Rfam assigns this 112-nucleotide RNA from Micromonospora inositola to the family "SAM (S-adenosyl methionine) riboswitch aptamer". Clan: SAM clan. Taxonomically the source falls in Micromonospora (Bacteria, Actinomycetota, Actinomycetes, Micromonosporales). A search with the family's covariance model found it, with a score of 108 bits. Rfam's curators write: SAM-IV is a mRNA element that regulates gene expression via direct sensing of S-adenosylmethionine (SAM or AdoMet). SAM-IV riboswitches share conserved nucleotide positions with the previously described SAM-I riboswitches sequence analysis and molecular recognition experiments suggest that SAM-I and SAM-IV riboswitches share similar ligand binding sites, but have different scaffolds. The family has 40 seed sequences and 2,360 matches in Rfam 15.1.

RNA sequence: GGUCAUGAGCGCCAGCGUCAAGCCCCGGCUCGCUGGCCGGCAACCCUCCUCCGCGGUGGGGUGCCCCGGGUGAAGACCAGGCACCGGCAGCACGCCGGUGCAAGCGUGGCCU
Dot-bracket structure: ((((....(.((((((....((......)).)))))))(((..(((.((.....))..))).))).........))))..((((((((.....))))))))...........